[Rfam]
Nucleotides: 075
Stems, first nucleotide, its partner, number of pairs: 001074003005070005011064012026049005033042003
Number, partner (000 for none) and nucleotide at each position: 001074g002073g003072c004000a005070c006069a007068a008067a009066u010000u011064u012063g013062a014061a015060g016059u017058a018057g019056a020055g021054u022053a023000a024000g025000a026049u027048a028047g029046u030045a031000u032000g033042g034041u035040c036000a037000g038000c039000u040035g041034a042033u043000a044000c045030u046029a047028c048027u049026a050000a051000u052000c053022u054021a055020c056019u057018c058017u059016a060015c061014u062013u063012c064011a065000a066009a067008u068007u069006u070005g071000g072003g073002c074001c075000c